[Rfam]
Rfam assigns this 77-nucleotide RNA sequence from Acanthoscelides obtectus to the family "mir-2796 microRNA precursor family". The base pairs follow the family's consensus structure, which was predicted with RNAalifold. It scores 85 bits against the family's covariance model.
RNA sequence: CAGUAAGUGCAGGGGUUUCUUUCGGCCUCCAGCAGCAUUUACGGCUGUAGGCCGGCGGAAACUACUUGCUCUUAUGC
Numbered sequence: 001c002a003g004u005a006a007g008u009g010c011a012g013g014g015g016u017u018u019c020u021u022u023c024g025g026c027c028u029c030c031a032g033c034a035g036c037a038u039u040u041a042c043g044g045c046u047g048u049a050g051g052c053c054g055g056c057g058g059a060a061a062c063u064a065c066u067u068g069c070u071c072u073u074a075u076g077c
Base pairs, nucleotide, nucleotide: 005073006072007071010068011067012066013065014063015062016061017060018059019058020057022055023054024053025052026051027050028049030047031046032045